Rfam assigns this 127-nucleotide RNA sequence from Phyllostomus discolor to the family "Small nucleolar RNA SNORA25".
About the family: ACA25 is a member of the H/ACA class of snoRNA that guide the sites of modification of uridines to pseudouridines.
A search with the family's covariance model found it, with a score of 120 bits.
NCBI's taxonomy places the organism under Eukaryota, Bilateria, Sarcopterygii, Tetrapoda, Phyllostomus.
[Rfam]
RNA sequence: GGGUCAUUUCAAAGAGAGCUUAUGUGACCGAAACCGGGAGCUCUUAACGCUGUGACCUAAGAUUGAAGUUCUCCAUAGGAUGUAAUACACACUUGAUAGUGUUGUGUUUUCUUAUGGAGAUAUAUAU
Numbered sequence: 001g002g003g004u005c006a007u008u009u010c011a012a013a014g015a016g017a018g019c020u021u022a023u024g025u026g027a028c029c030g031a032a033a034c035c036g037g038g039a040g041c042u043c044u045u046a047a048c049g050c051u052g053u054g055a056c057c058u059a060a061g062a063u064u065g066a067a068g069u070u071c072u073c074c075a076u077a078g079g080a081u082g083u084a085a086u087a088c089a090c091a092c093u094u095g096a097u098a099g100u101g102u103u104g105u106g107u108u109u110u111c112u113u114a115u116g117g118a119g120a121u122a123u124a125u126a127u
Stems, first nucleotide, its partner, number of pairs: 002057006014045008023037001026035001070120005077113004085105003089102005